[Rfam]
RNA sequence: GGCUGUGAUGGCCUUUGGCAGAAGCGCAUCGCCUGUGUUUUCUGUGGGAGUUGUUCGCUGGAGUGUCCAGUUCGAUCCCUGCGGUUAGAUUUACUGCGUCUGAGUAAUCGGCGUCUGUAAUUCUGGCAAUGAGUAGCACCAUCGCUGAAGGAGAGCAAUCUAGCACAGCAGGCUACCCGUGGCGGAGGCGAAGUGGAUGGCACAAAAGCAUUGGGGCAGUUUCUUCAGAGAAUCUGAUGUGACGACUACAUUU
Numbered sequence: 001g002g003c004u005g006u007g008a009u010g011g012c013c014u015u016u017g018g019c020a021g022a023a024g025c026g027c028a029u030c031g032c033c034u035g036u037g038u039u040u041u042c043u044g045u046g047g048g049a050g051u052u053g054u055u056c057g058c059u060g061g062a063g064u065g066u067c068c069a070g071u072u073c074g075a076u077c078c079c080u081g082c083g084g085u086u087a088g089a090u091u092u093a094c095u096g097c098g099u100c101u102g103a104g105u106a107a108u109c110g111g112c113g114u115c116u117g118u119a120a121u122u123c124u125g126g127c128a129a130u131g132a133g134u135a136g137c138a139c140c141a142u143c144g145c146u147g148a149a150g151g152a153g154a155g156c157a158a159u160c161u162a163g164c165a166c167a168g169c170a171g172g173c174u175a176c177c178c179g180u181g182g183c184g185g186a187g188g189c190g191a192a193g194u195g196g197a198u199g200g201c202a203c204a205a206a207a208g209c210a211u212u213g214g215g216g217c218a219g220u221u222u223c224u225u226c227a228g229a230g231a232a233u234c235u236g237a238u239g240u241g242a243c244g245a246c247u248a249c250a251u252u253u
Stems, first nucleotide, its partner, number of pairs: 001013003018249001020247002025241007038232003042228003046224010057209003063203004067196003071192004076186003079182006086126001087124003091120004096114005102109002127131001133176005139171001144169004152161003

This 253-nucleotide RNA sequence from Diutina rugosa belongs to the Rfam family "Fungal signal recognition particle RNA". A search with the family's covariance model found it, with a score of 113 bits. A reference for the family is Wild et al. (2002), "Towards the structure of the mammalian signal recognition particle", Curr Opin Struct Biol. Gene Ontology terms of the family: signal recognition particle, plasma membrane targeting, signal recognition particle, endoplasmic reticulum targeting and SRP-dependent cotranslational protein targeting to membrane, signal sequence recognition. Lineage of the source: Eukaryota > Opisthokonta > Ascomycota > saccharomyceta > Diutina. The family's consensus secondary structure is taken from published work. Clan: SRP clan. Rfam classes the family as a non-coding RNA gene. The family has 50 seed sequences and 748 matches in Rfam 15.1.